Background: A member of the RNA family "U7 small nuclear RNA", 57 nucleotides long. Pairs were carried over by alignment from the consensus structure, which was predicted with PFOLD. From the family's description: Animal histone pre-mRNAs are spliced by a different mechanism than nuclear pre-mRNAs and self-splicing introns. This processing involves the U7 snRNP, which contains only one RNA species: U7. The 5' end of U7 RNA is thought to base-pair to a conserved spacer element downstream of the cleavage site in histone pre-mRNA. This family contains a number of annotated U7 pseudogenes.

RNA sequence: AAGUGUUACAGCUCUUUUACUAUUUGUCUAGCCGGUUUUUACUCUGUUGGAGCCACA
Numbered sequence: 001a002a003g004u005g006u007u008a009c010a011g012c013u014c015u016u017u018u019a020c021u022a023u024u025u026g027u028c029u030a031g032c033c034g035g036u037u038u039u040u041a042c043u044c045u046g047u048u049g050g051a052g053c054c055a056c057a
Base pairs, nucleotide, nucleotide: 034054035053036052037051038050039049041047042046